[Rfam]
RNA sequence: AACGGCAGAGAUAAAAACGCAACGCGCCUCCCCCUUUGGGGACUGUGCCAGAGCCGGUAGGUAGCCCGGCCGUCUCGUUUAUCAAACGAGGUAAGUAACCCUCCCCUCCGGGUCGUCCGUUCCCUGUCCUUGGCAA
Numbered sequence: 001a002a003c004g005g006c007a008g009a010g011a012u013a014a015a016a017a018c019g020c021a022a023c024g025c026g027c028c029u030c031c032c033c034c035u036u037u038g039g040g041g042a043c044u045g046u047g048c049c050a051g052a053g054c055c056g057g058u059a060g061g062u063a064g065c066c067c068g069g070c071c072g073u074c075u076c077g078u079u080u081a082u083c084a085a086a087c088g089a090g091g092u093a094a095g096u097a098a099c100c101c102u103c104c105c106c107u108c109c110g111g112g113u114c115g116u117c118c119g120u121u122c123c124c125u126g127u128c129c130u131u132g133g134c135a136a
Base pairs, nucleotide, nucleotide: 004128005127006126007125008124010122011121053070054069055068056067057066072092073091074090075089076088077087078086079085080084103112104111105110
RNA: azaaromatic riboswitch aptamer (yjdF RNA)
Organism: Hungateiclostridiaceae bacterium KB18